RNA sequence: UUAAAACUCCAUCUAAAAAUGGAUAAGACUUUGAUCUUAAUAUGCGUGAGUUCUUGAAGAUAAAAUAAAAGAAAGGAGCAAUAGCCUAUUUCUUGUUUUAUUGAGAGGAUUGGCAUUGCUCCAUU
Numbered sequence: 001u002u003a004a005a006a007c008u009c010c011a012u013c014u015a016a017a018a019a020u021g022g023a024u025a026a027g028a029c030u031u032u033g034a035u036c037u038u039a040a041u042a043u044g045c046g047u048g049a050g051u052u053c054u055u056g057a058a059g060a061u062a063a064a065a066u067a068a069a070a071g072a073a074a075g076g077a078g079c080a081a082u083a084g085c086c087u088a089u090u091u092c093u094u095g096u097u098u099u100a101u102u103g104a105g106a107g108g109a110u111u112g113g114c115a116u117u118g119c120u121c122c123a124u125u
Stems, first nucleotide, its partner, number of pairs: 008023005072125002075122008090107005
The record is a 125-nucleotide RNA sequence from Ricinus communis, which matches "Plastid-psbA-1 3UTR RNA" in Rfam. It is annotated as a cis-regulatory element. A search with the family's covariance model found it, with a score of 82 bits.